[Rfam]
RNA sequence: UGGAUUGAUCACAAGUCCUGGAACCCUAUCAGUAUGGUCUCUGCUGUCCACUUUGUUCUGAGUAGUGCAAUAUUGCUUAUAGGGCUUCAGUUUUUUUUUUUU
Numbered sequence: 001u002g003g004a005u006u007g008a009u010c011a012c013a014a015g016u017c018c019u020g021g022a023a024c025c026c027u028a029u030c031a032g033u034a035u036g037g038u039c040u041c042u043g044c045u046g047u048c049c050a051c052u053u054u055g056u057u058c059u060g061a062g063u064a065g066u067g068c069a070a071u072a073u074u075g076c077u078u079a080u081a082g083g084g085c086u087u088c089a090g091u092u093u094u095u096u097u098u099u100u101u102u
Stems, first nucleotide, its partner, number of pairs: 020088003024084006030075006037068002041065005
A member of the RNA family "mir-454 microRNA precursor family" from Hucho hucho, 102 nucleotides long. The literature on the family includes a 2005 paper in Genes Dev by Chen et al., "The developmental miRNA profiles of zebrafish as determined by small RNA cloning". Taxonomically the source falls in Hucho (Eukaryota, Opisthokonta, Deuterostomia, Clupeocephala). It scores 74 bits against the family's covariance model. The family's consensus secondary structure was predicted with RNAalifold.